The record is a 151-nucleotide RNA sequence from Butyrivibrio proteoclasticus, which matches "Clostridiales-1 RNA" in Rfam. The organism belongs to Butyrivibrio proteoclasticus, within Bacteria. Rfam 15.1 lists 1,172 matches to the family in 137 species. A search with the family's covariance model found it, with a score of 106 bits.
RNA sequence: UGAUAUAGGGAUACAAAGUUAUAUUUUUCUGUGCUUGCACAGAGAAAAAUAUAACCUUGGAGACCGAACAUACAUGAGGAAGUAGAGCAAUAGCUCGGAUUCCGAAUGUAUGCAUGAUUGCGAGAACGUAGUGAAGCAAUCAUGGGUAUCA
Numbered sequence: 001u002g003a004u005a006u007a008g009g010g011a012u013a014c015a016a017a018g019u020u021a022u023a024u025u026u027u028u029c030u031g032u033g034c035u036u037g038c039a040c041a042g043a044g045a046a047a048a049a050u051a052u053a054a055c056c057u058u059g060g061a062g063a064c065c066g067a068a069c070a071u072a073c074a075u076g077a078g079g080a081a082g083u084a085g086a087g088c089a090a091u092a093g094c095u096c097g098g099a100u101u102c103c104g105a106a107u108g109u110a111u112g113c114a115u116g117a118u119u120g121c122g123a124g125a126a127c128g129u130a131g132u133g134a135a136g137c138a139a140u141c142a143u144g145g146g147u148a149u150c151a
Stems, first nucleotide, its partner, number of pairs: 001151006009064001012061001015058002018055011029042005069112007078103004085096004115142007126132002